[Rfam]
RNA: Small nucleolar RNA SNORD35
RNA sequence: UGCAAAUGAUGCUUUCUCACGAUGGUCUUCGUAGCUCACAAGGCUUUGACGAAAAUGCCGCAAGGCAUAACUGAUGCAACUCU
Numbered sequence: 001u002g003c004a005a006a007u008g009a010u011g012c013u014u015u016c017u018c019a020c021g022a023u024g025g026u027c028u029u030c031g032u033a034g035c036u037c038a039c040a041a042g043g044c045u046u047u048g049a050c051g052a053a054a055a056u057g058c059c060g061c062a063a064g065g066c067a068u069a070a071c072u073g074a075u076g077c078a079a080c081u082c083u
Stems, first nucleotide, its partner, number of pairs: 001078004